[Rfam]
RNA sequence: AUACAUGAUGACUUACAUGGACUCUCAUUCAGCUAAUGACUUGCUGCUGAAACAUGGAAAUCUGAUUUUU
Numbered sequence: 001a002u003a004c005a006u007g008a009u010g011a012c013u014u015a016c017a018u019g020g021a022c023u024c025u026c027a028u029u030c031a032g033c034u035a036a037u038g039a040c041u042u043g044c045u046g047c048u049g050a051a052a053c054a055u056g057g058a059a060a061u062c063u064g065a066u067u068u069u070u
Stems, first nucleotide, its partner, number of pairs: 023052001025050003030046004
Shown here is a 70-nucleotide RNA sequence, a member of the family "Small nucleolar RNA SNORD30". Gene Ontology terms of the family: RNA processing and nucleolus. Clan: SNORD30 clan.